Glycine riboswitch aptamer: a 108-nucleotide RNA from Nocardioides sp. JQ2195. This family represents the bacterial glycine riboswitch. It scores 62 bits against the family's covariance model. Lineage of the source: Bacteria > Actinomycetota > Actinomycetes > Propionibacteriales > Nocardioides.
RNA sequence: CAAUCCCGUGCGGGAGAGUCUUCGUGCCGGCUCUCGAGCCGGUGAUGGAGCGCCGAAGGGGCAACCCCUCCCCGGAACCUCUCAGGCGCCAAGGACCGCGCGGGCUGG
Numbered sequence: 001c002a003a004u005c006c007c008g009u010g011c012g013g014g015a016g017a018g019u020c021u022u023c024g025u026g027c028c029g030g031c032u033c034u035c036g037a038g039c040c041g042g043u044g045a046u047g048g049a050g051c052g053c054c055g056a057a058g059g060g061g062c063a064a065c066c067c068c069u070c071c072c073c074g075g076a077a078c079c080u081c082u083c084a085g086g087c088g089c090c091a092a093g094g095a096c097c098g099c100g101c102g103g104g105c106u107g108g
Stems, first nucleotide, its partner, number of pairs: 006103008020050006052087003055083002059081003065075002